Rfam assigns this 72-nucleotide RNA from Heterocephalus glaber to the family "mir-153 microRNA precursor family". The organism belongs to Heterocephalus, within Eukaryota.
[Rfam]
RNA sequence: GCCAGUGUCAUUUUUGUGAUCUGCAGCUAGCAUUCUCAUUCCAGUUGGAUAGUCACAAAAGUGCCCAUUGGC
Numbered sequence: 001g002c003c004a005g006u007g008u009c010a011u012u013u014u015u016g017u018g019a020u021c022u023g024c025a026g027c028u029a030g031c032a033u034u035c036u037c038a039u040u041c042c043a044g045u046u047g048g049a050u051a052g053u054c055a056c057a058a059a060a061g062u063g064c065c066c067a068u069u070g071g072c
Stems, first nucleotide, its partner, number of pairs: 002071006009063012022049001024047005
For this family Rfam cites "The developmental miRNA profiles of zebrafish as determined by small RNA cloning" (Chen et al., Genes Dev, 2005). The family's consensus secondary structure was predicted with RNAalifold.